[Rfam]
RNA sequence: AGAGGUCAAGUUUAAGGCCAUAGCAGAAGUGUUCAGGCAUGGCCAAAUCAGAUCCUAAUGAAUCUGUAAAUUCUGCU
Dot-bracket structure: ............[..[[[[..((((((((((......)))]]]]]...(((((.(....).)))))....)))))))
Numbered sequence: 001a002g003a004g005g006u007c008a009a010g011u012u013u014a015a016g017g018c019c020a021u022a023g024c025a026g027a028a029g030u031g032u033u034c035a036g037g038c039a040u041g042g043c044c045a046a047a048u049c050a051g052a053u054c055c056u057a058a059u060g061a062a063u064c065u066g067u068a069a070a071u072u073c074u075g076c077u
Stems, first nucleotide, its partner, number of pairs: 013045001016044004022077007029040003049066005055060001
Annotation: Shown here is a 77-nucleotide RNA from Crocodylus porosus, a member of the family "Mammalian CPEB3 ribozyme". A search with the family's covariance model found it, with a score of 47 bits. Rfam links the family to the GO term RNA nuclease activity. Taxonomically the source falls in Crocodylus (Eukaryota, Craniata, Tetrapoda, Amniota).